RNA sequence: CGUCGCCGGGAUCGCCCCCCGCCAGCGAUGUUCGCCCGCGGGGGCGAUCGGC
Numbered sequence: 001c002g003u004c005g006c007c008g009g010g011a012u013c014g015c016c017c018c019c020c021g022c023c024a025g026c027g028a029u030g031u032u033c034g035c036c037c038g039c040g041g042g043g044g045c046g047a048u049c050g051g052c
Stems, first nucleotide, its partner, number of pairs: 016044007025035004